[Rfam]
RNA sequence: UGGGUUUGUCCUAAGACAAACUUCUUUAAGUUUUACCAACUUCAUAGAAAAGUAUAGCAGCAUUUCCAACACAAAUCAAAUAUACUACAAUUCAAUAGUGGAUUUAAUUAAACUAAUUUGGUGUUAUAAAUGUUGCUAUGUUUUUAUAAAAGUUUAGUCAAACUUAAAGUAGUUUGACUUGGGACAAACCCAA
Numbered sequence: 001u002g003g004g005u006u007u008g009u010c011c012u013a014a015g016a017c018a019a020a021c022u023u024c025u026u027u028a029a030g031u032u033u034u035a036c037c038a039a040c041u042u043c044a045u046a047g048a049a050a051a052g053u054a055u056a057g058c059a060g061c062a063u064u065u066c067c068a069a070c071a072c073a074a075a076u077c078a079a080a081u082a083u084a085c086u087a088c089a090a091u092u093c094a095a096u097a098g099u100g101g102a103u104u105u106a107a108u109u110a111a112a113c114u115a116a117u118u119u120g121g122u123g124u125u126a127u128a129a130a131u132g133u134u135g136c137u138a139u140g141u142u143u144u145u146a147u148a149a150a151a152g153u154u155u156a157g158u159c160a161a162a163c164u165u166a167a168a169g170u171a172g173u174u175u176g177a178c179u180u181g182g183g184a185c186a187a188a189c190c191c192a193a
Stems, first nucleotide, its partner, number of pairs: 005188005011182005017176006024169003031162003035158001044147007055138003059134007068125001072120005

This 193-nucleotide sequence from Oryza sativa belongs to the Rfam family "MIR1435 microRNA precursor family". The match comes from Rfam's covariance-model search (97 bits). Taxonomically the source falls in Oryza sativa (Eukaryota, Poales, Oryzoideae, Oryzeae). The base pairs follow the family's consensus structure, which was predicted with RNAalifold. Rfam links the family to the GO terms RISC complex and miRNA-mediated post-transcriptional gene silencing.